Shown here is a 157-nucleotide RNA sequence from Cajanus cajan, a member of the family "MIR4371 microRNA precursor family".
The family's consensus secondary structure was predicted with RNAalifold.
It scores 111 bits against the family's covariance model.
RNA sequence: CUAUCAAGUGAUAACGUGGUAGAUGAACUGGCACGUCAUCACCCAACAGUGUCUGCCACGUCAUCCAAGGGACUGCCACGUGGACAUGGUGAUGAUGCGGCAAACACUGUUGGGUGAUGACGUGCCAGUUCAUCUACCACGUUAUCACUUGAUAGAG
Numbered sequence: 001c002u003a004u005c006a007a008g009u010g011a012u013a014a015c016g017u018g019g020u021a022g023a024u025g026a027a028c029u030g031g032c033a034c035g036u037c038a039u040c041a042c043c044c045a046a047c048a049g050u051g052u053c054u055g056c057c058a059c060g061u062c063a064u065c066c067a068a069g070g071g072a073c074u075g076c077c078a079c080g081u082g083g084a085c086a087u088g089g090u091g092a093u094g095a096u097g098c099g100g101c102a103a104a105c106a107c108u109g110u111u112g113g114g115u116g117a118u119g120a121c122g123u124g125c126c127a128g129u130u131c132a133u134c135u136a137c138c139a140c141g142u143u144a145u146c147a148c149u150u151g152a153u154a155g156a157g
Base pairs, nucleotide, nucleotide: 001155002154003153004152005151006150007149008148009147010146011145012144013143014142015141016140017139018138019137020136021135022134023133024132025131026130027129028128029127030126031125032124033123034122035121036120037119038118039117040116041115042114043113044112045111046110049107050106051105052104055101056100057099059097064084065083066082067081